[Rfam]
RNA sequence: GCGAACAAAUACAACGAAAGCCCUGCCUCUCUUCCAUCCUUGCGGCUCCGAUGACCGCGCCAGUACGAAUUUGGACAUUGCAAAGCAA
Numbered sequence: 001g002c003g004a005a006c007a008a009a010u011a012c013a014a015c016g017a018a019a020g021c022c023c024u025g026c027c028u029c030u031c032u033u034c035c036a037u038c039c040u041u042g043c044g045g046c047u048c049c050g051a052u053g054a055c056c057g058c059g060c061c062a063g064u065a066c067g068a069a070u071u072u073g074g075a076c077a078u079u080g081c082a083a084a085g086c087a088a
Stems, first nucleotide, its partner, number of pairs: 035067001039063002041059005047053001

Rfam assigns this 88-nucleotide RNA from Paenibacillus darwinianus to the family "BsrC". It is annotated as a small RNA. The 301 nucleotide sequence from Kouji Nakamura has been trimmed to a highly conserved ~85 nucleotide long core to form this family. It scores 69 bits against the family's covariance model. NCBI's taxonomy places the organism under Bacteria, Bacillati, Bacilli, Paenibacillaceae, Paenibacillus. A reference for the family is Saito et al. (2008), "Novel small RNA-encoding genes in the intergenic regions of Bacillus subtilis", Gene.